The family of this 306-nucleotide RNA from Tetracentron sinense is "Plant signal recognition particle RNA".
[Rfam]
RNA sequence: GCCGAGCUAAGUAGCGUGAGCUUGUAACCCGAGUGGGGGCAUUAAGGUGGUCGAACAUGGGUUUAACUCAGACAGGCUGGAUCUGUUGGGGAAACUAACUGGUUAGCCCAUUCCAAGUCGGGAGAUGAGUCAUGUUGUCCGAGCGAAGGCUUGGGCGUCACGGCUCUUAGUGUGGAGGGUUAAGCGUCAGGCUGGCCUAACAGAGCAGCGAAAACCUCCCGCUCUCGACAGUGGAAGGAAUACGAGCCGGUACUCCUCAGACCUACUAACGCUCGAAGAGACGAUCUCUAUCGGACGACCACUUUU
Numbered sequence: 001g002c003c004g005a006g007c008u009a010a011g012u013a014g015c016g017u018g019a020g021c022u023u024g025u026a027a028c029c030c031g032a033g034u035g036g037g038g039g040c041a042u043u044a045a046g047g048u049g050g051u052c053g054a055a056c057a058u059g060g061g062u063u064u065a066a067c068u069c070a071g072a073c074a075g076g077c078u079g080g081a082u083c084u085g086u087u088g089g090g091g092a093a094a095c096u097a098a099c100u101g102g103u104u105a106g107c108c109c110a111u112u113c114c115a116a117g118u119c120g121g122g123a124g125a126u127g128a129g130u131c132a133u134g135u136u137g138u139c140c141g142a143g144c145g146a147a148g149g150c151u152u153g154g155g156c157g158u159c160a161c162g163g164c165u166c167u168u169a170g171u172g173u174g175g176a177g178g179g180u181u182a183a184g185c186g187u188c189a190g191g192c193u194g195g196c197c198u199a200a201c202a203g204a205g206c207a208g209c210g211a212a213a214a215c216c217u218c219c220c221g222c223u224c225u226c227g228a229c230a231g232u233g234g235a236a237g238g239a240a241u242a243c244g245a246g247c248c249g250g251u252a253c254u255c256c257u258c259a260g261a262c263c264u265a266c267u268a269a270c271g272c273u274c275g276a277a278g279a280g281a282c283g284a285u286c287u288c289u290a291u292c293g294g295a296c297g298a299c300c301a302c303u304u305u306u
Stems, first nucleotide, its partner, number of pairs: 001040003004023005010017001028037003044305010056293001058290003061286001063284002068279002075273003079264002082261004088256004094251001099250006106243001108238002111236005117229008127166005133160002136157009167172001174219005185210003192203003

The base pairs follow the family's consensus structure, which is taken from published work. The match comes from Rfam's covariance-model search (217 bits). NCBI's taxonomy places the organism under Eukaryota, Streptophyta, Mesangiospermae, Trochodendraceae, Tetracentron.